[Rfam]
RNA: TPP riboswitch aptamer (THI element)
Organism: Desulfarculus baarsii
RNA sequence: UGUCAUGCUGGGGGGUGUCCACGAGGACUGAGAGCGCCGCCGCCAAAGGCGCGACCCCUUGAACCUGAUCCGGAUCAUGCCGGCGGAGGGAACGGCCCGUCCUGUCGCA
Numbered sequence: 001u002g003u004c005a006u007g008c009u010g011g012g013g014g015g016u017g018u019c020c021a022c023g024a025g026g027a028c029u030g031a032g033a034g035c036g037c038c039g040c041c042g043c044c045a046a047a048g049g050c051g052c053g054a055c056c057c058c059u060u061g062a063a064c065c066u067g068a069u070c071c072g073g074a075u076c077a078u079g080c081c082g083g084c085g086g087a088g089g090g091a092a093c094g095g096c097c098c099g100u101c102c103u104g105u106c107g108c109a
Stems, first nucleotide, its partner, number of pairs: 007096004011058004017028004035051004064089003070083004